[Rfam]
RNA sequence: CCAGCAUUCCCAGGUAGGCCAAGGUGUCCUACAGAAAAACCUUGGGUUAGACCUACAGGGGUUCUGG
Numbered sequence: 001c002c003a004g005c006a007u008u009c010c011c012a013g014g015u016a017g018g019c020c021a022a023g024g025u026g027u028c029c030u031a032c033a034g035a036a037a038a039a040c041c042u043u044g045g046g047u048u049a050g051a052c053c054u055a056c057a058g059g060g061g062u063u064c065u066g067g
Stems, first nucleotide, its partner, number of pairs: 001067004006063001008061004014056005019045007026032002
RNA: MAT2A 3'UTR stem loop E